[Rfam]
RNA: FMN riboswitch aptamer (RFN element)
Organism: Bacillus sp. V59.32b
RNA sequence: GUCUAUCUUCGGGGCGGAGUGAAAUUCUCCACCGGCGGUGAUGAAGCAAUGCUUCAAAGCCCGCGAGCUCUUCGGGGCAGAUUUGGUGUAAUUCCAAAGCCGACAGUUAUAGUCUGGAUGGGAGAAGAUGGAG
Dot-bracket structure: ..((((((((......(((.......))).[[((((((....................[[))))..(((......)))...(((((.......)))))]])).(((.....]]))).......))))))))..